[Rfam]
RNA sequence: UAUUCUUUAUCGCUUAAUUCAUUUAUUGAAGCGGGGGACCCACUAGUUUCAGGGGUGAAUCCUUUCUGUUGAAAGGUAGGGCCACUUCCAUGACCCGAAUCCGUCAGCUAACUCCGUAAGCGUAUUGGGAGAGGAUGA
Numbered sequence: 001u002a003u004u005c006u007u008u009a010u011c012g013c014u015u016a017a018u019u020c021a022u023u024u025a026u027u028g029a030a031g032c033g034g035g036g037g038a039c040c041c042a043c044u045a046g047u048u049u050c051a052g053g054g055g056u057g058a059a060u061c062c063u064u065u066c067u068g069u070u071g072a073a074a075g076g077u078a079g080g081g082c083c084a085c086u087u088c089c090a091u092g093a094c095c096c097g098a099a100u101c102c103g104u105c106a107g108c109u110a111a112c113u114c115c116g117u118a119a120g121c122g123u124a125u126u127g128g129g130a131g132a133g134g135a136u137g138a
Stems, first nucleotide, its partner, number of pairs: 011122004018030003031117006041052001053102003061076004079096003
This 138-nucleotide sequence from Rossellomorea vietnamensis belongs to the Rfam family "c-di-AMP riboswitch aptamer (ydaO/yuaA leader)". About the family: This family represents a conserved RNA structure found upstream of the ydaO and yuaA genes in Bacillus subtilis and related genes in other bacteria.